This 91-nucleotide sequence belongs to the Rfam family "Rhodo-rpoB RNA". Rfam's curators put it in the seed alignment. Pairs were carried over by alignment from the consensus structure, which is taken from published work.
RNA sequence: CCGUCGGGAGGCCUUUGGUGGGACAAAGGUCACGUAUGGACGGCACGCCCCCAGUCAUAAGCAGACCACUUUGCAGCCCAGGCAACGUGAU
Numbered sequence: 001c002c003g004u005c006g007g008g009a010g011g012c013c014u015u016u017g018g019u020g021g022g023a024c025a026a027a028g029g030u031c032a033c034g035u036a037u038g039g040a041c042g043g044c045a046c047g048c049c050c051c052c053a054g055u056c057a058u059a060a061g062c063a064g065a066c067c068a069c070u071u072u073g074c075a076g077c078c079c080a081g082g083c084a085a086c087g088u089g090a091u
Base pairs, nucleotide, nucleotide: 001043002042003041004040005039010031011030012029013028014027015026016025017024065091067089068088069087071085072084073083